[Rfam]
RNA sequence: CCCCAUACUGUUUUUCUGAAAGACAGUAUGGGGGUCCAUUCAGUCUGCAACGAGGGUUCGCUCGUG
Numbered sequence: 001c002c003c004c005a006u007a008c009u010g011u012u013u014u015u016c017u018g019a020a021a022g023a024c025a026g027u028a029u030g031g032g033g034g035u036c037c038a039u040u041c042a043g044u045c046u047g048c049a050a051c052g053a054g055g056g057u058u059c060g061c062u063c064g065u066g
Stems, first nucleotide, its partner, number of pairs: 001033015
The family of this 66-nucleotide sequence from Yersinia bercovieri is "ClpQY promoter". The literature on the family includes a 2009 paper in Open Microbiol J by Lien et al., "Regulation of clpQ(+)Y(+) (hslV(+)U(+)) gene expression in Escherichia coli". Its family is annotated with mRNA stabilization in the Gene Ontology. NCBI's taxonomy places the organism under Bacteria, Pseudomonadati, Yersiniaceae, Yersinia, Yersinia bercovieri.